[Rfam]
Nucleotides: 158
Base pairs, nucleotide, nucleotide: 011144012143013142014141018050019049020048051139052138053137054136055135056134061071062070072124073123074122080098081097082096083095084094085093101118102117103116104115
Number, partner (000 for none) and nucleotide at each position: 001000c002000g003000g004000g005000c006000g007000g008000c009000a010000c011144c012143g013142c014141c015000g016000a017000g018050u019049c020048g021000c022000a023000c024000c025000a026000c027000c028000u029000g030000c031000c032000c033000c034000c035000a036000u037000c038000a039000c040000g041000g042000c043000a044000g045000g046000c047000g048020c049019g050018a051139g052138c053137c054136g055135g056134g057000g058000a059000a060000c061071c062070a063000g064000g065000u066000u067000c068000g069000u070062u071061g072124g073123g074122g075000u076000g077000a078000a079000u080098c081097c082096g083095c084094g085093a086000g087000a088000g089000c090000c091000u092000u093085u094084c095083g096082c097081g098080g099000u100000a101118g102117g103116g104115c105000c106000a107000u108000u109000c110000u111000u112000c113000c114000g115104g116103c117102c118101c119000g120000a121000a122074u123073c124072c125000g126000u127000c128000a129000g130000c131000u132000a133000a134056c135055c136054c137053g138052g139051u140000a141014g142013g143012c144011g145000g146000c147000g148000a149000c150000g151000g152000a153000g154000a155000c156000c157000g158000a

The family of this 158-nucleotide sequence from Rugosimonospora africana is "c-di-AMP riboswitch aptamer (ydaO/yuaA leader)". The match comes from Rfam's covariance-model search (83 bits). NCBI's taxonomy places the organism under Bacteria, Actinomycetes, Micromonosporales, Micromonosporaceae, Rugosimonospora.